Source information
A member of the RNA family "c-di-AMP riboswitch aptamer (ydaO/yuaA leader)" from Desulfotomaculum copahuensis, 154 nucleotides long.

[Rfam]
RNA sequence: CCAAUAUAUCGGCCGAAUCCUCCACCGGGAGGUACGGGGGAAUUCAAUCGAUGCGGGGUGAAUCCACGCCUGGCGGGAGGUGAAACAAACAGGCGCGGUAGGGUGCCCUCGCCCGAAUCCGUCAACUAACUCCGGAGGCCGGAGGAGGGAAAAA
Dot-bracket structure: ..........((((....((((......))))..(((((....(..........)(((.....((.((((((.................)))))).))..((((......))))...))).........)))))..))))..............
Numbered sequence: 001c002c003a004a005u006a007u008a009u010c011g012g013c014c015g016a017a018u019c020c021u022c023c024a025c026c027g028g029g030a031g032g033u034a035c036g037g038g039g040g041a042a043u044u045c046a047a048u049c050g051a052u053g054c055g056g057g058g059u060g061a062a063u064c065c066a067c068g069c070c071u072g073g074c075g076g077g078a079g080g081u082g083a084a085a086c087a088a089a090c091a092g093g094c095g096c097g098g099u100a101g102g103g104u105g106c107c108c109u110c111g112c113c114c115g116a117a118u119c120c121g122u123c124a125a126c127u128a129a130c131u132c133c134g135g136a137g138g139c140c141g142g143a144g145g146a147g148g149g150a151a152a153a154a
Stems, first nucleotide, its partner, number of pairs: 011140004019032004035134005044055001056120003064098002067095006101114004